[Rfam]
RNA: Fluoride riboswitch aptamer (crcB RNA motif)
Organism: Paraburkholderia sp. DHOC27
RNA sequence: UAACUUGACGGAGAUGGCAUACCUCCGAUCGAACCGCCGGGAUGGCCGGCUGAUGAUGCCUACGCCUGC
Numbered sequence: 001u002a003a004c005u006u007g008a009c010g011g012a013g014a015u016g017g018c019a020u021a022c023c024u025c026c027g028a029u030c031g032a033a034c035c036g037c038c039g040g041g042a043u044g045g046c047c048g049g050c051u052g053a054u055g056a057u058g059c060c061u062a063c064g065c066c067u068g069c
Stems, first nucleotide, its partner, number of pairs: 010026004016060005036050004